[Rfam]
RNA sequence: GUCGGUUACGGGGACAUUAGUCCUAUCACUGUUCUGGGGAAGAUCAUUGGAUCUGUUUGCUGUGUAUGUGGUGUGCUAUUCAUCGCUCUCCCCAUUCCUAUCAUCGUGAACAAU
Numbered sequence: 001g002u003c004g005g006u007u008a009c010g011g012g013g014a015c016a017u018u019a020g021u022c023c024u025a026u027c028a029c030u031g032u033u034c035u036g037g038g039g040a041a042g043a044u045c046a047u048u049g050g051a052u053c054u055g056u057u058u059g060c061u062g063u064g065u066a067u068g069u070g071g072u073g074u075g076c077u078a079u080u081c082a083u084c085g086c087u088c089u090c091c092c093c094a095u096u097c098c099u100a101u102c103a104u105c106g107u108g109a110a111c112a113a114u
Stems, first nucleotide, its partner, number of pairs: 001114002004111001007108005013102002016099001019096003037077002040074001049063001051061001
RNA: Potassium channel RNA editing signal
Organism: Strongylocentrotus purpuratus